[Rfam]
RNA sequence: GAUCCCGGAGGUCCACGCCCGCCAGCGCGUUGCGCCCGCGGGCGCGUUUCCG
Numbered sequence: 001g002a003u004c005c006c007g008g009a010g011g012u013c014c015a016c017g018c019c020c021g022c023c024a025g026c027g028c029g030u031u032g033c034g035c036c037c038g039c040g041g042g043c044g045c046g047u048u049u050c051c052g
Base pairs, nucleotide, nucleotide: 016044017043018042019041020040021039022038025035026034027033028032
Dot-bracket structure: ...............(((((((..((((...))))..)))))))........